[Rfam]
RNA sequence: UAGAAGUGAUGAAAUAGAGAUAAUUGGAUGUGUCUUUGAAAGUGUGUGAUAAAUGGAAUUUAAACCAAGUUGGGUGGGAAAAAGGGAGUGUGUGUGUGCGUGUGUGCGUGGAUAGAAGAGGCUUCGAAUGGGGGCACUGACAAUGCAGUGCUGAUUCCGGAGUGCAUCUGAGGCAUGUUGUUAAAUUCUGGGGUGCCACAUUACAACAUUGCCGAUGAUUAAAGCCCAAAAGAAGCCCACCAAGAGAAGCCUGAGCAUCCUAAAUCUCUAACAGGUUCAUUGCUGAAAGUGAUCCUGUGAUCUGAUCUGA
Dot-bracket structure: ((((...........................................................................................................................................................................((((((.(..(.(....).).....).)))))).................................................................................................)))).

Notes:
The family of this 310-nucleotide sequence from Thinocorus orbignyianus is "Small Cajal body-specific RNA 7". The match comes from Rfam's covariance-model search (187 bits). For this family Rfam cites "Cajal body-specific small nuclear RNAs: a novel class of 2'-O-methylation and pseudouridylation guide RNAs" (Darzacq et al., EMBO J, 2002).